[Rfam]
RNA sequence: UGCCCCAUAGCCAAGCGGUAAGGCAUCGGGUUUUGGUUCCGACACGCGUUAGUUCGAAUCUAACUGGGGCAG
Numbered sequence: 001u002g003c004c005c006c007a008u009a010g011c012c013a014a015g016c017g018g019u020a021a022g023g024c025a026u027c028g029g030g031u032u033u034u035g036g037u038u039c040c041g042a043c044a045c046g047c048g049u050u051a052g053u054u055c056g057a058a059u060c061u062a063a064c065u066g067g068g069g070c071a072g
Stems, first nucleotide, its partner, number of pairs: 001071007010024003026042005048064005